[Rfam]
RNA: MIR5269 microRNA precursor family
RNA sequence: UUGGGUGAAAUCUAUGUGGAUACCGCACAUUAAAAAUGAAUCUCACAUAAAGUGGUGAGAUCCACAUGAGUUUCAUCCAA
Numbered sequence: 001u002u003g004g005g006u007g008a009a010a011u012c013u014a015u016g017u018g019g020a021u022a023c024c025g026c027a028c029a030u031u032a033a034a035a036a037u038g039a040a041u042c043u044c045a046c047a048u049a050a051a052g053u054g055g056u057g058a059g060a061u062c063c064a065c066a067u068g069a070g071u072u073u074c075a076u077c078c079a080a
Stems, first nucleotide, its partner, number of pairs: 001080011013068006024057002026054003030050003